[Rfam]
RNA sequence: GGCCAGGGGGAAGGAAAAAAUAUAGGCUAAAACACUUAGUAUGGGCAAGCAGGGAGCUGGAAAAUUUUGCACUCAACCCUGGCC
Numbered sequence: 001g002g003c004c005a006g007g008g009g010g011a012a013g014g015a016a017a018a019a020a021u022a023u024a025g026g027c028u029a030a031a032a033c034a035c036u037u038a039g040u041a042u043g044g045g046c047a048a049g050c051a052g053g054g055a056g057c058u059g060g061a062a063a064a065u066u067u068u069g070c071a072c073u074c075a076a077c078c079c080u081g082g083c084c
Stems, first nucleotide, its partner, number of pairs: 001084008
Dot-bracket structure: ((((((((....................................................................))))))))

About this RNA
Shown here is an 84-nucleotide RNA sequence from Lentivirus humimdef1, a member of the family "HIV gag stem loop 3 (GSL3)". For this family Rfam cites "RNA interactions in the 5' region of the HIV-1 genome" (Damgaard et al., J Mol Biol, 2004). The sequence is in the family's curated seed alignment.